Annotation:
Rfam assigns this 85-nucleotide sequence from Cynoglossus semilaevis to the family "mir-221 microRNA precursor family". The source organism's lineage runs through Eukaryota, Teleostomi, Osteoglossocephalai, Eurypterygia and Cynoglossus.
RNA sequence: UGAGUCCUGAACCUGGCAUACAAUGUAGAUUUCUGUGUGCUUACAUUCUACAGCUACAUUGUCUGCUGGGUUUCUGGUCUGCGGU
Numbered sequence: 001u002g003a004g005u006c007c008u009g010a011a012c013c014u015g016g017c018a019u020a021c022a023a024u025g026u027a028g029a030u031u032u033c034u035g036u037g038u039g040c041u042u043a044c045a046u047u048c049u050a051c052a053g054c055u056a057c058a059u060u061g062u063c064u065g066c067u068g069g070g071u072u073u074c075u076g077g078u079c080u081g082c083g084g085u
Base pairs, nucleotide, nucleotide: 013069014068015067016066017065018064020062021061022060023059024058025057026056027055028054033053034052035051036050

The family's consensus secondary structure was predicted with RNAalifold.